A member of the RNA family "Betaproteobacteria toxic small RNA" from Noviherbaspirillum sp. Root189, 64 nucleotides long.
Overexpression in amino aid rich medium attenuates growth, suggesting role in repressing amino acid intake and metabolism.
The organism belongs to Noviherbaspirillum, within Bacteria.
On this family, see Kimelman et al., Genome Res 2012: "A vast collection of microbial genes that are toxic to bacteria".
It scores 52 bits against the family's covariance model.
Rfam 15.1 lists 951 matches to the family in 508 species.
RNA sequence: UGUCUCCUCCAACUCUCCUUGAAUUGGAUUCGCCCGCAUUCUGCAAGGUCUGCGGGCUUUUUUC
Numbered sequence: 001u002g003u004c005u006c007c008u009c010c011a012a013c014u015c016u017c018c019u020u021g022a023a024u025u026g027g028a029u030u031c032g033c034c035c036g037c038a039u040u041c042u043g044c045a046a047g048g049u050c051u052g053c054g055g056g057c058u059u060u061u062u063u064c
Stems, first nucleotide, its partner, number of pairs: 008028005014022002032057007